[Rfam]
RNA sequence: UUAUUUUUACUUUCGGUUAUCUAGCUUUAUGAAGACUCCACACCACUCAUACAGCUAGAUAACCAAAGAUAACAACCA
Numbered sequence: 001u002u003a004u005u006u007u008u009a010c011u012u013u014c015g016g017u018u019a020u021c022u023a024g025c026u027u028u029a030u031g032a033a034g035a036c037u038c039c040a041c042a043c044c045a046c047u048c049a050u051a052c053a054g055c056u057a058g059a060u061a062a063c064c065a066a067a068g069a070u071a072a073c074a075a076c077c078a
Stems, first nucleotide, its partner, number of pairs: 001078001004075002007072003011068003015064012028051005
The record is a 78-nucleotide RNA sequence from Rattus norvegicus, which matches "mir-9/mir-79 microRNA precursor family" in Rfam. Pairs were carried over by alignment from the consensus structure, which was predicted with RNAalifold. The literature on the family includes a 2001 paper in Science by Lagos-Quintana et al., "Identification of novel genes coding for small expressed RNAs". Its family is annotated with miRNA-mediated post-transcriptional gene silencing and RISC complex in the Gene Ontology. Lineage of the source: Eukaryota > Bilateria > Tetrapoda > Boreoeutheria > Rattus. The sequence is in the family's curated seed alignment.